[Rfam]
RNA sequence: UGGGUCGGCAAGACGGUCGCGUCACGGCCUAAUUCAUUGGGCGGUGCCGAGGAACGUCCGGGCUCCACAGAGCAGGAUGGUGGGUAACUCCCACCCGGGGUAACCCGCGAGACAGUGCAACAGAGAGUAAACCGCCUCCGGUUCGCCGGCGGUAAGGCUGAAACGGUGGUGUAAGAGACCACCAGCAGUCUGGGUGACCAGAUUGGCUAGGUAAACCUCGUCCGGAGCAAGGUCAGACAGAUAACGUUAUGGUUGCUCGCCUAGUUAUCGGGUAGACCGCUAGAAAGGUGCGGCAACGUACCUUCGAGAUAGAUGGCCGUCCACGCAGCGCAAGCUGUGAGACAGAACCCGGCGUAUCAGCUGGCCCAUUCG
Numbered sequence: 001u002g003g004g005u006c007g008g009c010a011a012g013a014c015g016g017u018c019g020c021g022u023c024a025c026g027g028c029c030u031a032a033u034u035c036a037u038u039g040g041g042c043g044g045u046g047c048c049g050a051g052g053a054a055c056g057u058c059c060g061g062g063c064u065c066c067a068c069a070g071a072g073c074a075g076g077a078u079g080g081u082g083g084g085u086a087a088c089u090c091c092c093a094c095c096c097g098g099g100g101u102a103a104c105c106c107g108c109g110a111g112a113c114a115g116u117g118c119a120a121c122a123g124a125g126a127g128u129a130a131a132c133c134g135c136c137u138c139c140g141g142u143u144c145g146c147c148g149g150c151g152g153u154a155a156g157g158c159u160g161a162a163a164c165g166g167u168g169g170u171g172u173a174a175g176a177g178a179c180c181a182c183c184a185g186c187a188g189u190c191u192g193g194g195u196g197a198c199c200a201g202a203u204u205g206g207c208u209a210g211g212u213a214a215a216c217c218u219c220g221u222c223c224g225g226a227g228c229a230a231g232g233u234c235a236g237a238c239a240g241a242u243a244a245c246g247u248u249a250u251g252g253u254u255g256c257u258c259g260c261c262u263a264g265u266u267a268u269c270g271g272g273u274a275g276a277c278c279g280c281u282a283g284a285a286a287g288g289u290g291c292g293g294c295a296a297c298g299u300a301c302c303u304u305c306g307a308g309a310u311a312g313a314u315g316g317c318c319g320u321c322c323a324c325g326c327a328g329c330g331c332a333a334g335c336u337g338u339g340a341g342a343c344a345g346a347a348c349c350c351g352g353c354g355u356a357u358c359a360g361c362u363g364g365c366c367c368a369u370u371c372g
Stems, first nucleotide, its partner, number of pairs: 001368009011357001012321007020049002023046003027042005054355003058352005063227004070258004075223005080094005095109001096107004110218002115216002117212002132157002134153003138149004165183006185207001186205008231278004240269006251261003285304008